Background:
This 121-nucleotide RNA sequence belongs to the Rfam family "Group II catalytic intron D1-D4-2". Rfam links the family to the GO term Group II intron splicing. A search with the family's covariance model found it, with a score of 91 bits.
RNA sequence: GGAGGACUGUUGGCCCUCUGGAGUCGCCCAUUCGGGGGGAGGCUUCAAACCACCUCAUGCUGCGUUGGCUGAAGACCGUCGUGGUGAGCGAUGAGGAAAAGGCGCACUUGAUGCGUCAGGU
Number, nucleotide and partner (000 for none) at each position: 001g019002g018003a017004g016005g015006a000007c000008u000009g000010u000011u000012g000013g000014c000015c005016c004017u003018c002019u001020g046021g045022a044023g043024u042025c041026g000027c039028c038029c037030a000031u036032u000033c000034g000035g000036g031037g029038g028039g027040a000041g025042g024043c023044u022045u021046c020047a000048a000049a000050c000051c120052a000053c096054c095055u094056c093057a092058u091059g085060c084061u000062g082063c081064g080065u000066u078067g077068g076069c000070u000071g000072a000073a000074g000075a000076c068077c067078g066079u000080c064081g063082u062083g000084g060085u059086g000087a000088g000089c000090g000091a058092u057093g056094a055095g054096g053097a000098a000099a000100a000101g117102g116103c115104g114105c113106a112107c000108u000109u000110g000111a000112u106113g105114c104115g103116u102117c101118a000119g000120g051121u000